[Rfam]
Rfam assigns this 75-nucleotide RNA sequence from Quercus lobata to the family "Plastid-ycf2 5UTR RNA".
It scores 79 bits against the family's covariance model.
About the family: Plastid ycf2 is a non-coding RNA (ncRNA) recognised in plastids. It was found in the prime untranslated region (5UTR) of ycf2 genes, it presents a tRNA-like motif which suggests it can be involved in mRNA maturation, particularly involved in defining the precise 5' end of the transcript.
RNA sequence: GUGCAUCAUGUAGGAAUUGAACCUACGAAUUCAACAAUUAUGAAUUGGGCACUUUUACCAUUCAGCCAUGGAUGC
Numbered sequence: 001g002u003g004c005a006u007c008a009u010g011u012a013g014g015a016a017u018u019g020a021a022c023c024u025a026c027g028a029a030u031u032c033a034a035c036a037a038u039u040a041u042g043a044a045u046u047g048g049g050c051a052c053u054u055u056u057a058c059c060a061u062u063c064a065g066c067c068a069u070g071g072a073u074g075c
Stems, first nucleotide, its partner, number of pairs: 003075005010026005040069003045065005